RNA sequence: UUUUAACUUCAGGGCAGGGUGAGAUUCCCGACCGGCGGUAUAGUCCGCGAGCCUAAGGGCUGAACUGGUUAGAUUCCAGUACCGACAGUGAAAGUCUGGAUGGGAGAAGUAUGUA
Numbered sequence: 001u002u003u004u005a006a007c008u009u010c011a012g013g014g015c016a017g018g019g020u021g022a023g024a025u026u027c028c029c030g031a032c033c034g035g036c037g038g039u040a041u042a043g044u045c046c047g048c049g050a051g052c053c054u055a056a057g058g059g060c061u062g063a064a065c066u067g068g069u070u071a072g073a074u075u076c077c078a079g080u081a082c083c084g085a086c087a088g089u090g091a092a093a094g095u096c097u098g099g100a101u102g103g104g105a106g107a108a109g110u111a112u113g114u115a
Stems, first nucleotide, its partner, number of pairs: 003113001006110005017029003031095002033084002035048004043082002051060003064080005086098003

Rfam assigns this 115-nucleotide sequence from Peptoclostridium acidaminophilum to the family "FMN riboswitch aptamer (RFN element)". A reference for the family is Wilt et al. (2020), "FMN riboswitch aptamer symmetry facilitates conformational switching through mutually exclusive coaxial stacking configurations", J Struct Biol X. Lineage of the source: Bacteria > Bacillati > Bacillota > Clostridia > Peptoclostridium acidaminophilum.